[Rfam]
RNA sequence: UCAUCACCAUACUGUAUUAGUGAUAAAAAAGUAUAAGGGACAAUAACAAAAGUCUCCCAUCCGUGGGAGACGUUUUGACCAGUU
Number, nucleotide and partner (000 for none) at each position: 001u000002c000003a000004u000005c000006a000007c000008c000009a000010u000011a000012c000013u000014g000015u000016a000017u000018u000019a000020g000021u000022g000023a000024u000025a000026a000027a000028a000029a000030a000031g000032u000033a000034u000035a000036a000037g000038g000039g000040a000041c000042a000043a000044u000045a000046a000047c077048a076049a075050a074051a073052g071053u070054c069055u068056c067057c066058c065059a000060u000061c000062c000063g000064u000065g058066g057067g056068a055069g054070a053071c052072g000073u051074u050075u049076u048077g047078a000079c000080c000081a000082g000083u000084u000
The record is an 84-nucleotide sequence from Citrobacter koseri, which matches "Enterobacterial sRNA STnc230" in Rfam. It is annotated as a small RNA.